[Rfam]
Nucleotides: 134
Base pairs, nucleotide, nucleotide: 003132004131005130006129007128008127009126010125017029018028019027031114032113033103034102035048036047037046038045043101044100052078053077054076055075056074083099084098085097086096087095105117106116107115
Number, partner (000 for none) and nucleotide at each position: 001000c002000c003132a004131u005130u006129c007128c008127u009126u010125c011000a012000g013000g014000g015000c016000g017029g018028a019027g020000u021000g022000c023000a024000a025000g026000u027019c028018u029017c030000c031114a032113c033103c034102g035048g036047c037046g038045g039000u040000a041000u042000a043101g044100c045038c046037c047036g048035c049000g050000a051000a052078g053077c054076c055075u056074a057000g058000a059000a060000a061000u062000c063000u064000g065000c066000a067000g068000u069000a070000c071000a072000u073000c074056u075055a076054g077053g078052c079000c080000c081000g082000a083099u084098u085097c086096g087095g088000u089000g090000a091000a092000a093000c094000u095087c096086c097085g098084a099083a100044g101043c102034c103033g104000a105117c106116c107115g108000u109000g110000a111000c112000a113032g114031u115107c116106g117105g118000g119000a120000u121000g122000g123000a124000a125010g126009a127008a128007g129006g130005a131004g132003u133000g134000a